[Rfam]
The record is a 105-nucleotide sequence from Massilia eurypsychrophila, which matches "Group II catalytic intron D1-D4-1" in Rfam.

RNA sequence: GCCUCAUGCCUGAAAGGGCAACGGUGCAAGCCGGAGCGAGAAGUCAGCAGAGGUCGUAGUAGGUGCUGGUAUGGCCGGGGAGGCUAAAGACUGGUGCUGAAGGAC
Numbered sequence: 001g002c003c004u005c006a007u008g009c010c011u012g013a014a015a016g017g018g019c020a021a022c023g024g025u026g027c028a029a030g031c032c033g034g035a036g037c038g039a040g041a042a043g044u045c046a047g048c049a050g051a052g053g054u055c056g057u058a059g060u061a062g063g064u065g066c067u068g069g070u071a072u073g074g075c076c077g078g079g080g081a082g083g084c085u086a087a088a089g090a091c092u093g094g095u096g097c098u099g100a101a102g103g104a105c
Stems, first nucleotide, its partner, number of pairs: 001027002004023001007020005044051002053105003062098009